[Rfam]
Nucleotides: 172
Base pairs, nucleotide, nucleotide: 014159015158018155019154020153021152024149025148026147027146028145029144030143031142032141033140035138036137037136038135039134041132042131
Number, partner (000 for none) and nucleotide at each position: 001000g002000u003000c004000a005000c006000g007000g008000u009000g010000g011000u012000u013000u014159u015158c016000u017000g018155a019154u020153u021152c022000g023000c024149u025148u026147g027146g028145u029144a030143c031142a032141g033140g034000u035138c036137g037136g038135g039134a040000a041132c042131g043000g044000c045000u046000u047000c048000g049000c050000c051000g052000g053000c054000g055000a056000g057000u058000u059000c060000a061000g062000u063000u064000u065000u066000u067000u068000u069000c070000u071000g072000u073000u074000u075000u076000u077000g078000c079000a080000c081000c082000u083000c084000a085000c086000u087000a088000g089000a090000a091000g092000g093000u094000g095000a096000a097000a098000c099000c100000g101000u102000g103000u104000g105000g106000u107000g108000g109000a110000g111000a112000a113000u114000c115000g116000u117000u118000a119000u120000u121000c122000g123000g124000u125000g126000a127000a128000u129000a130000u131042c132041g133000g134039u135038c136037c137036c138035g139000c140033c141032u142031u143030g144029u145028a146027u147026c148025a149024a150000c151000u152021g153020a154019a155018u156000c157000a158015g159014a160000a161000a162000c163000c164000g165000c166000a167000g168000u169000g170000a171000a172000u
MIR168 microRNA precursor family: a 172-nucleotide RNA sequence from Cynara cardunculus.
The match comes from Rfam's covariance-model search (81 bits).
Lineage of the source: Eukaryota > Embryophyta > Magnoliopsida > asterids > Cynara cardunculus subsp. cardunculus.